[Rfam]
RNA sequence: AACUAAUCAUAUUAGGUGAGGUUACUCUGAAGAACAUAGGUUAUCGCUCAAAACUGUCGAGAGACAAUAAUGGGUAAAGCAGGACUAGUCGAAUCAAGGCUUUUCCAAGAUAACUAGAAAUAUCAUUUCUUACGUCUCAGAAAGCCAAAACUCAAAUGUCGUGAUUAAAU
Numbered sequence: 001a002a003c004u005a006a007u008c009a010u011a012u013u014a015g016g017u018g019a020g021g022u023u024a025c026u027c028u029g030a031a032g033a034a035c036a037u038a039g040g041u042u043a044u045c046g047c048u049c050a051a052a053a054c055u056g057u058c059g060a061g062a063g064a065c066a067a068u069a070a071u072g073g074g075u076a077a078a079g080c081a082g083g084a085c086u087a088g089u090c091g092a093a094u095c096a097a098g099g100c101u102u103u104u105c106c107a108a109g110a111u112a113a114c115u116a117g118a119a120a121u122a123u124c125a126u127u128u129c130u131u132a133c134g135u136c137u138c139a140g141a142a143a144g145c146c147a148a149a150a151c152u153c154a155a156a157u158g159u160c161g162u163g164a165u166u167a168a169a170u
Stems, first nucleotide, its partner, number of pairs: 005166006011157002013097001015152003020146003026141005032136002040114005046075005055066004082106003088100003116130003
A member of the RNA family "M-box riboswitch aptamer (ykoK leader)" from Lactococcus lactis, 170 nucleotides long. Rfam's curators write: M-box riboswitch, also know as ykoK leader is described as a metaloregulatory RNA that sense divalent metals and function as a genetic control element of genes related to divalent metal transport in bacteria. The sequence is in the family's curated seed alignment. The family has 159 seed sequences and 1,095 matches in Rfam 15.1. The organism belongs to Lactococcus lactis subsp. lactis, within Bacteria.